[Rfam]
RNA sequence: GUUCAUCGCCAAACCAUCCUCCUCCCAGGUUUGGCGAUAACAAGACCGGUUCUCCUCCUCCCAACACCGGUCUUACUAUAAUGGCAUCCGUCGCUCCUCCUCCCGCGACGGAUGCCAUUU
Number, nucleotide and partner (000 for none) at each position: 001g000002u000003u000004c000005a000006u000007c036008g035009c034010c033011a032012a031013a030014c029015c028016a000017u000018c000019c000020u000021c000022c000023u000024c000025c000026c000027a000028g015029g014030u013031u012032u011033g010034g009035c008036g007037a000038u000039a000040a000041c000042a074043a073044g072045a071046c070047c069048g068049g067050u066051u000052c000053u000054c000055c000056u000057c000058c000059u000060c000061c000062c000063a000064a000065c000066a050067c049068c048069g047070g046071u045072c044073u043074u042075a000076c000077u000078a000079u000080a000081a000082u000083g000084g115085c114086a113087u112088c111089c110090g109091u108092c107093g106094c105095u000096c000097c000098u000099c000100c000101u000102c000103c000104c000105g094106c093107g092108a091109c090110g089111g088112a087113u086114g085115c084116c000117a000118u000119u000120u000
The record is a 120-nucleotide sequence from Brucella intermedia, which matches "Alphaproteobacterial ar14" in Rfam. It is one of the family's seed sequences. The family's RNA type in Rfam is small RNA. Rfam's curators write: Smr14C2 was renamed NfeR1 (Nodule Formation Efficiency RNA) highly expressed in salt stress and during the symbiotic interaction on legume roots.